[Rfam]
RNA sequence: AGACGAUAAUACUAAACCAUUCGCGAGAAUGGGGCGGAAAGCCUAAUGGGUCUCGAAGAGACAGCCGGGUUGCCGAA
Numbered sequence: 001a002g003a004c005g006a007u008a009a010u011a012c013u014a015a016a017c018c019a020u021u022c023g024c025g026a027g028a029a030u031g032g033g034g035c036g037g038a039a040a041g042c043c044u045a046a047u048g049g050g051u052c053u054c055g056a057a058g059a060g061a062c063a064g065c066c067g068g069g070u071u072g073c074c075g076a077a
Stems, first nucleotide, its partner, number of pairs: 012037002017032006040071004047067003050062003054058001
Record summary
This 77-nucleotide RNA from Geotalea uraniireducens belongs to the Rfam family "c-di-GMP-I riboswitch aptamer". The organism belongs to Geotalea uraniireducens, within Bacteria.